[Rfam]
RNA sequence: CUGCAAGUUCAAAGCCAUAGCAGAAGAGCUUAUGGCAUGGUCUACUCAGAUUCCACUGAAUCUGCAAAUUCUGCU
Dot-bracket structure: ............[[[[..((((((((.(.......).)]].]]...(((((((....)))))))....)))))))
RNA: Mammalian CPEB3 ribozyme
Organism: Alligator mississippiensis